[Rfam]
The family of this 212-nucleotide sequence from Acer saccharum is "MIR530 microRNA precursor family".
For this family Rfam cites "Stress-responsive microRNAs in Populus" (Lu et al., Plant J, 2008).
It scores 88 bits against the family's covariance model.
Taxonomically the source falls in Acer (Eukaryota, Viridiplantae, Magnoliopsida, eudicotyledons).

RNA sequence: GCUAAGAUGCAGCCUUUAUCUGCAUUUGCACCUGCAUCUUGUGUUAUCUAUGUAUAACUAACUAGUAAGUAGCAACUACUAGUCUUCAAAAGCUAGCCUAACAAUAUUUAGCAAAUCCAACUCUUGUUUAUUUGAGAUGAGUUGUGGAGGCUAAUUAGCUAGCUAUUUGACAAGAAGGUGCAGGUGUAAGUGCAGGUGAAUGCCAUUUUGGU
Numbered sequence: 001g002c003u004a005a006g007a008u009g010c011a012g013c014c015u016u017u018a019u020c021u022g023c024a025u026u027u028g029c030a031c032c033u034g035c036a037u038c039u040u041g042u043g044u045u046a047u048c049u050a051u052g053u054a055u056a057a058c059u060a061a062c063u064a065g066u067a068a069g070u071a072g073c074a075a076c077u078a079c080u081a082g083u084c085u086u087c088a089a090a091a092g093c094u095a096g097c098c099u100a101a102c103a104a105u106a107u108u109u110a111g112c113a114a115a116u117c118c119a120a121c122u123c124u125u126g127u128u129u130a131u132u133u134g135a136g137a138u139g140a141g142u143u144g145u146g147g148a149g150g151c152u153a154a155u156u157a158g159c160u161a162g163c164u165a166u167u168u169g170a171c172a173a174g175a176a177g178g179u180g181c182a183g184g185u186g187u188a189a190g191u192g193c194a195g196g197u198g199a200a201u202g203c204c205a206u207u208u209u210g211g212u
Stems, first nucleotide, its partner, number of pairs: 001212009012203002015200025